Shown here is a 78-nucleotide RNA sequence from Alligator mississippiensis, a member of the family "Mammalian CPEB3 ribozyme". Lineage of the source: Eukaryota > Deuterostomia > Craniata > Tetrapoda > Alligator. The base pairs follow the family's consensus structure, which is taken from published work. A search with the family's covariance model found it, with a score of 38 bits.
RNA sequence: AGGUUGAAAAAUUGACGCCAUAGCAGAAGUGCUCAGGGUGUGGCCAUGUCAGAUUCCAACGAAUCUACCAGUUCUGCU
Numbered sequence: 001a002g003g004u005u006g007a008a009a010a011a012u013u014g015a016c017g018c019c020a021u022a023g024c025a026g027a028a029g030u031g032c033u034c035a036g037g038g039u040g041u042g043g044c045c046a047u048g049u050c051a052g053a054u055u056c057c058a059a060c061g062a063a064u065c066u067a068c069c070a071g072u073u074c075u076g077c078u
Base pairs, nucleotide, nucleotide: 013046014045017044018043019042022078023077024076025075026074027073028072029041030040031039051066052065053064054063055062056061
Dot-bracket structure: ............[[..[[[..((((((((((.......)))]]]]]....((((((....)))))).....)))))))

Background
Gene Ontology term of the family: RNA nuclease activity.